[Rfam]
RNA sequence: CAAGAGCGACAGGGGCGUCGGUGGAAGCCGGCUGAGAAGCACCCUUCGAACCUGAUCCGGAUCAUACCGGCGGAGGGAGUCACUCGGGUCCGCUU
Numbered sequence: 001c002a003a004g005a006g007c008g009a010c011a012g013g014g015g016c017g018u019c020g021g022u023g024g025a026a027g028c029c030g031g032c033u034g035a036g037a038a039g040c041a042c043c044c045u046u047c048g049a050a051c052c053u054g055a056u057c058c059g060g061a062u063c064a065u066a067c068c069g070g071c072g073g074a075g076g077g078a079g080u081c082a083c084u085c086g087g088g089u090c091c092g093c094u095u
Stems, first nucleotide, its partner, number of pairs: 006083001008081003011045004016039001017032005051076003057070004